RNA sequence: GUUCCCAGUGAUGGUUUAAAUUAUCCAUGCUAAUACUGAUGUCCUGUGACGCGUAAGAAUAUUUUACUGAGGGAACU
Numbered sequence: 001g002u003u004c005c006c007a008g009u010g011a012u013g014g015u016u017u018a019a020a021u022u023a024u025c026c027a028u029g030c031u032a033a034u035a036c037u038g039a040u041g042u043c044c045u046g047u048g049a050c051g052c053g054u055a056a057g058a059a060u061a062u063u064u065u066a067c068u069g070a071g072g073g074a075a076c077u
Stems, first nucleotide, its partner, number of pairs: 001076005

The record is a 77-nucleotide RNA sequence from Zizania palustris, which matches "Small nucleolar RNA snoR53Y" in Rfam. A reference for the family is Brown et al. (2001), "Multiple snoRNA gene clusters from Arabidopsis", RNA. Lineage of the source: Eukaryota > Streptophyta > Magnoliopsida > Poaceae > Zizania. The base pairs follow the family's consensus structure, which was predicted with WAR. Rfam links the family to the GO terms nucleolus and RNA processing. The match comes from Rfam's covariance-model search (69 bits). Rfam classes the family as a C/D-box small nucleolar RNA.